Shown here is a 54-nucleotide RNA from Atlantibacter hermannii, a member of the family "ClpQY promoter". The family's RNA type in Rfam is cis-regulatory element. Rfam links the family to the GO term mRNA stabilization. The pairing is the family consensus, mapped onto this sequence. A search with the family's covariance model found it, with a score of 45 bits. A reference for the family is Lien et al. (2009), "Regulation of clpQ(+)Y(+) (hslV(+)U(+)) gene expression in Escherichia coli", Open Microbiol J.
[Rfam]
RNA sequence: CCCCGCGCUUAGCGCGGGGCCUGUAUUCAGCUAUCGAAAAGGGGUCUGUCAGUG
Numbered sequence: 001c002c003c004c005g006c007g008c009u010u011a012g013c014g015c016g017g018g019g020c021c022u023g024u025a026u027u028c029a030g031c032u033a034u035c036g037a038a039a040a041g042g043g044g045u046c047u048g049u050c051a052g053u054g
Base pairs, nucleotide, nucleotide: 001019002018003017004016005015006014007013008012